Shown here is a 129-nucleotide sequence from Probosciger aterrimus, a member of the family "Small nucleolar RNA SNORA5". A search with the family's covariance model found it, with a score of 35 bits.
[Rfam]
RNA sequence: AGCAGCCCUGUCAAAUUCAGUGUCAUCUGCUGUGUUUGUUGUUGGCCCUGCCAGCUGCCUGCAGAAGUAACUGCAGCUCAUGGGCCUCAGAGUGCGGGAUCACAGAAUGGUUUGGGCUGGAAGGCACCU
Numbered sequence: 001a002g003c004a005g006c007c008c009u010g011u012c013a014a015a016u017u018c019a020g021u022g023u024c025a026u027c028u029g030c031u032g033u034g035u036u037u038g039u040u041g042u043u044g045g046c047c048c049u050g051c052c053a054g055c056u057g058c059c060u061g062c063a064g065a066a067g068u069a070a071c072u073g074c075a076g077c078u079c080a081u082g083g084g085c086c087u088c089a090g091a092g093u094g095c096g097g098g099a100u101c102a103c104a105g106a107a108u109g110g111u112u113u114g115g116g117c118u119g120g121a122a123g124g125c126a127c128c129u
Stems, first nucleotide, its partner, number of pairs: 002062004018050003022046004027041001074119005086105002